[Rfam]
RNA sequence: GCGCCUGGGCAUAGCCCCCAGUUCCCCCCAAAUUUGGGCAUGAUCCCUGGGUCUUCCAACGCGCUGGGCGUAGCCCCGGGGCCUCGGGGACGACCGCCGGGGUCCCGCUCACCUUCAGCAC
Dot-bracket structure: ..(.(.((((...))))...).)...((((....)))).....(.(..(((...)))...).).((((......(((.((................)).))).))))..............
Shown here is a 121-nucleotide sequence from Cnephaeus nilssonii, a member of the family "Insulin-like growth factor II IRES".
Rfam links the family to the GO term ribosome binding.
The organism belongs to Cnephaeus, within Eukaryota.
The base pairs follow the family's consensus structure, which is taken from published work.
The literature on the family includes a 2002 paper in Biochem J by Pedersen et al., "Human insulin-like growth factor II leader 2 mediates internal initiation of translation".
It scores 104 bits against the family's covariance model.